[Rfam]
RNA: SR1 sRNA
Organism: Halobacillus halophilus
RNA sequence: AAUGAAUGUACAUUGAAAGCGAUUACAAAUUAUGAGGAGUGGAUGUUAAUGGGUACAAUCGUUUGUCAGGACUGUCAAAAAGUGAUUGAACACUACGAAAAUGAAAAGGUAUCUACCCUUUACAGCACAUGCCCUACGUGCCAUACAACGGAAAAAUAAAAGACGCAAAAAGCCCGCUGCUGUUUAAAGCAGCGGGCUUUUUU
Numbered sequence: 001a002a003u004g005a006a007u008g009u010a011c012a013u014u015g016a017a018a019g020c021g022a023u024u025a026c027a028a029a030u031u032a033u034g035a036g037g038a039g040u041g042g043a044u045g046u047u048a049a050u051g052g053g054u055a056c057a058a059u060c061g062u063u064u065g066u067c068a069g070g071a072c073u074g075u076c077a078a079a080a081a082g083u084g085a086u087u088g089a090a091c092a093c094u095a096c097g098a099a100a101a102u103g104a105a106a107a108g109g110u111a112u113c114u115a116c117c118c119u120u121u122a123c124a125g126c127a128c129a130u131g132c133c134c135u136a137c138g139u140g141c142c143a144u145a146c147a148a149c150g151g152a153a154a155a156a157u158a159a160a161a162g163a164c165g166c167a168a169a170a171a172g173c174c175c176g177c178u179g180c181u182g183u184u185u186a187a188a189g190c191a192g193c194g195g196g197c198u199u200u201u202u203u
Stems, first nucleotide, its partner, number of pairs: 019110002023107002028102001031099001033097002036094002039091002050085001052083001054081001062077001139153001141151002168201013